[Rfam]
RNA sequence: AAAUCGCCCCUAAGUUUUGCCACUGUAGCACUUUUGGCCCCCCAAGGCAAAAAAAAAAAAAAAAUUAACGCGUGGCACCUCACUUACGGUGCCACGUCAACGUAGACCGAAUCAAAAUUGGCCUUGGGGGCCAAAACUGCCAAUAGUGCAAAACUUAGGAGGCGAUUU
Numbered sequence: 001a002a003a004u005c006g007c008c009c010c011u012a013a014g015u016u017u018u019g020c021c022a023c024u025g026u027a028g029c030a031c032u033u034u035u036g037g038c039c040c041c042c043c044a045a046g047g048c049a050a051a052a053a054a055a056a057a058a059a060a061a062a063a064a065u066u067a068a069c070g071c072g073u074g075g076c077a078c079c080u081c082a083c084u085u086a087c088g089g090u091g092c093c094a095c096g097u098c099a100a101c102g103u104a105g106a107c108c109g110a111a112u113c114a115a116a117a118u119u120g121g122c123c124u125u126g127g128g129g130g131c132c133a134a135a136a137c138u139g140c141c142a143a144u145a146g147u148g149c150a151a152a153a154c155u156u157a158g159g160a161g162g163c164g165a166u167u168u
Stems, first nucleotide, its partner, number of pairs: 001168002004165005011157009021148006028140003032136011044124001070097002073094007
Shown here is a 168-nucleotide sequence from Medicago truncatula, a member of the family "MIR2619 microRNA precursor family".
NCBI's taxonomy places the organism under Eukaryota, Streptophytina, Mesangiospermae, eudicotyledons, Medicago.